This 118-nucleotide RNA sequence from Clostridium beijerinckii belongs to the Rfam family "FMN riboswitch aptamer (RFN element)". It is one of the family's seed sequences. Pairs were carried over by alignment from the consensus structure, which is taken from published work. The RFN element is a highly conserved domain that is found frequently in the 5'-untranslated regions of prokaryotic mRNAs that encode for flavin mononucleotide (FMN) biosynthesis and transport proteins.
RNA sequence: AUAUAUCUUCAGGGCAGGGUGUAAAUCCCUACCGGCGGUAUAGCCCGCGAGCUUUUAAGAAAGCAGAUUCGGUGUAACUCCGAGGCCGACAGUAUAGUCUGGAUGAAAGAAGGUAACC
Numbered sequence: 001a002u003a004u005a006u007c008u009u010c011a012g013g014g015c016a017g018g019g020u021g022u023a024a025a026u027c028c029c030u031a032c033c034g035g036c037g038g039u040a041u042a043g044c045c046c047g048c049g050a051g052c053u054u055u056u057a058a059g060a061a062a063g064c065a066g067a068u069u070c071g072g073u074g075u076a077a078c079u080c081c082g083a084g085g086c087c088g089a090c091a092g093u094a095u096a097g098u099c100u101g102g103a104u105g106a107a108a109g110a111a112g113g114u115a116a117c118c
Stems, first nucleotide, its partner, number of pairs: 004115007017029003031098002033088002035048004043086002051064002068084005090101003